[Rfam]
RNA sequence: GUCCAUGUGGCGGAAUGGUAGACGCUGCGGACUUAAAAUCCGUUGACCUUUGGGUCGUGGGAGUUCAAGUCUCCCCAUGGGCA
Number, nucleotide and partner (000 for none) at each position: 001g082002u081003c080004c079005a078006u077007g076008u000009g000010g025011c024012g023013g000014a000015a000016u000017g000018g000019u000020a000021g000022a000023c012024g011025c010026u000027g043028c042029g041030g040031a039032c000033u000034u000035a000036a000037a000038a000039u031040c030041c029042g028043u027044u000045g000046a000047c000048c000049u000050u000051u000052g000053g000054g000055u000056c000057g000058u000059g075060g074061g073062a072063g071064u000065u000066c000067a000068a000069g000070u000071c063072u062073c061074c060075c059076c007077a006078u005079g004080g003081g002082c001083a000
A member of the RNA family "tRNA" from Anaplasma phagocytophilum, 83 nucleotides long. Its family is annotated with triplet codon-amino acid adaptor activity in the Gene Ontology. The match comes from Rfam's covariance-model search (56 bits). Rfam classes the family as a transfer RNA. The organism belongs to Anaplasma, within Bacteria. On this family, see Lowe and Eddy, Nucleic Acids Res 1997: "tRNAscan-SE: a program for improved detection of transfer RNA genes in genomic sequence".